[Rfam]
RNA sequence: CAAGCAUGCACGCUGCUAUUUUCCGUUUCUUUUUUUACUUUAGCGCCUGAUCGUCAGGGGCUUUUGCGCAUAAGAAAAGAAACGAAAAAUCGCGCUGAAAGCCUCCCUCGUAGAGGCUUUUUUGUU
Numbered sequence: 001c002a003a004g005c006a007u008g009c010a011c012g013c014u015g016c017u018a019u020u021u022u023c024c025g026u027u028u029c030u031u032u033u034u035u036u037a038c039u040u041u042a043g044c045g046c047c048u049g050a051u052c053g054u055c056a057g058g059g060g061c062u063u064u065u066g067c068g069c070a071u072a073a074g075a076a077a078a079g080a081a082a083c084g085a086a087a088a089a090u091c092g093c094g095c096u097g098a099a100a101g102c103c104u105c106c107c108u109c110g111u112a113g114a115g116g117c118u119u120u121u122u123u124g125u126u
Stems, first nucleotide, its partner, number of pairs: 015093002018090001020088003024084010035073003041056001043054002057067001059065002098120008

Record summary
This 126-nucleotide RNA sequence from a Plautia stali symbiont belongs to the Rfam family "Phenylalanine leader peptide". Its family is annotated with cellular amino acid metabolic process in the Gene Ontology. It is annotated as a cis-regulatory leader. The source organism's lineage runs through Bacteria, Pseudomonadati, Gammaproteobacteria, Enterobacterales and Enterobacteriaceae. The family's consensus secondary structure was predicted with CMfinder.